[Rfam]
RNA: Glycine riboswitch aptamer
RNA sequence: GCCCAUUCGAUGGGAGAAUCCGGCCCCGCGCCGGUGCCGAAGGAGCAACCGCCUCGGAAACUCUCAGGCCAAAGGACCAUCGGAUGCGA
Numbered sequence: 001g002c003c004c005a006u007u008c009g010a011u012g013g014g015a016g017a018a019u020c021c022g023g024c025c026c027c028g029c030g031c032c033g034g035u036g037c038c039g040a041a042g043g044a045g046c047a048a049c050c051g052c053c054u055c056g057g058a059a060a061c062u063c064u065c066a067g068g069c070c071a072a073a074g075g076a077c078c079a080u081c082g083g084a085u086g087c088g089a
Stems, first nucleotide, its partner, number of pairs: 006084008020034004036069003039065002043063003049056001